[Rfam]
RNA: mir-29 microRNA precursor family
RNA sequence: UGACAACUGUAUUCGAGUGUGUGAAUAGAGUUUAUUAUUAUCUAGCACCAUUCGAAUUCAGUGCUCG
Numbered sequence: 001u002g003a004c005a006a007c008u009g010u011a012u013u014c015g016a017g018u019g020u021g022u023g024a025a026u027a028g029a030g031u032u033u034a035u036u037a038u039u040a041u042c043u044a045g046c047a048c049c050a051u052u053c054g055a056a057u058u059c060a061g062u063g064c065u066c067g
Base pairs, nucleotide, nucleotide: 001067002066003065005062007061008060009059011057012056013055014054015053017051018050019049021048022047023046026044027043028042029041